Bacterial large subunit ribosomal RNA: a 600-nucleotide part of an RNA from uncultured bacterium HF0770_08F21. The sequence is in the family's curated seed alignment.
[Rfam]
RNA sequence: GGGCUUGCGGUGGAUUCCUUGGCGUCAAUGGGCGAUGAAGGGCGUAGCAAGCUGCGAUAAGCUUCGGGGAGCCGCUAACAGGCGUUGAUCCGGAGAUACCCGAAUGGGGCAACCCUACACAGGUCAUACUGUGUAAUCUUCGACUGAAUACAUAGGUCGUUGAGGCUAACCAGGGGAAUUGAAACAUCUUAGUACCCUGAGGAACAGAAAACAAAAGUGAUUCCCCUAGUAGUGGCGAACGAACGGGGAACAGCCUAAACCAAGCGUUACGUUAAAACCCGUGGGUGUUGUACGCUUGGGGUUGUGGGUCUCGAUUUGGCGGAACUACGGAUCUGCCGGAAUGUUACAAAAACAUGCUUUAGUUUAACAGGCUGGAAAGCCUGGCCAUAGAAGGUGAUAGCCCUGUGAAUGAAAAGGUAUGUUCAUUCUUGAUUGAGUACCCAAGUACUACGGGACACGAGAAAUCUUGUAGGAAUCUGGGAGGACCACCUCUCAAGGCUAAAUACCAUUGACGACCGAUAGUGAACUAGUACCGUGAGGGAAAGGUGAAAAGCACCCCGGUGAGGGGAGUGAAAUAGUAUAUGAAACCGCGAGCCUACA
Numbered sequence: 001g002g003g004c005u006u007g008c009g010g011u012g013g014a015u016u017c018c019u020u021g022g023c024g025u026c027a028a029u030g031g032g033c034g035a036u037g038a039a040g041g042g043c044g045u046a047g048c049a050a051g052c053u054g055c056g057a058u059a060a061g062c063u064u065c066g067g068g069g070a071g072c073c074g075c076u077a078a079c080a081g082g083c084g085u086u087g088a089u090c091c092g093g094a095g096a097u098a099c100c101c102g103a104a105u106g107g108g109g110c111a112a113c114c115c116u117a118c119a120c121a122g123g124u125c126a127u128a129c130u131g132u133g134u135a136a137u138c139u140u141c142g143a144c145u146g147a148a149u150a151c152a153u154a155g156g157u158c159g160u161u162g163a164g165g166c167u168a169a170c171c172a173g174g175g176g177a178a179u180u181g182a183a184a185c186a187u188c189u190u191a192g193u194a195c196c197c198u199g200a201g202g203a204a205c206a207g208a209a210a211a212c213a214a215a216a217g218u219g220a221u222u223c224c225c226c227u228a229g230u231a232g233u234g235g236c237g238a239a240c241g242a243a244c245g246g247g248g249a250a251c252a253g254c255c256u257a258a259a260c261c262a263a264g265c266g267u268u269a270c271g272u273u274a275a276a277a278c279c280c281g282u283g284g285g286u287g288u289u290g291u292a293c294g295c296u297u298g299g300g301g302u303u304g305u306g307g308g309u310c311u312c313g314a315u316u317u318g319g320c321g322g323a324a325c326u327a328c329g330g331a332u333c334u335g336c337c338g339g340a341a342u343g344u345u346a347c348a349a350a351a352a353c354a355u356g357c358u359u360u361a362g363u364u365u366a367a368c369a370g371g372c373u374g375g376a377a378a379g380c381c382u383g384g385c386c387a388u389a390g391a392a393g394g395u396g397a398u399a400g401c402c403c404u405g406u407g408a409a410u411g412a413a414a415a416g417g418u419a420u421g422u423u424c425a426u427u428c429u430u431g432a433u434u435g436a437g438u439a440c441c442c443a444a445g446u447a448c449u450a451c452g453g454g455a456c457a458c459g460a461g462a463a464a465u466c467u468u469g470u471a472g473g474a475a476u477c478u479g480g481g482a483g484g485a486c487c488a489c490c491u492c493u494c495a496a497g498g499c500u501a502a503a504u505a506c507c508a509u510u511g512a513c514g515a516c517c518g519a520u521a522g523u524g525a526a527c528u529a530g531u532a533c534c535g536u537g538a539g540g541g542a543a544a545g546g547u548g549a550a551a552a553g554c555a556c557c558c559c560g561g562u563g564a565g566g567g568g569a570g571u572g573a574a575a576u577a578g579u580a581u582a583u584g585a586a587a588c589c590g591c592g593a594g595c596c597u598a599c600a
Base pairs, nucleotide, nucleotide: 001597002596003595004594005593006592007591008590009589010588016582017546018545021517022516023514024513025512026511027510028509029508030507031506032166033165040101041100042099043056044055045054062095063094064093065092066091067090068089071083072082073081106115107114108113116135117134118133119132120131121130122129137163138162141159142158143157144156145155170201171199172198173197174196175195181188182187211218212217221503222249223248224247225246226245232240233239252500253499254498255497260299261298262297263296264295265294266293306442307441308440311436312435313434314433315432348426351423352422353421354420355419356418357417358416359415360414362410363409364408368383369382370381371380372379386390392404393403394402448472449471450470451469452468453467454466455465479494480493481492482491483490533540534539556568557567558566559565
The family has 102 seed sequences and 51,934 matches in Rfam 15.1.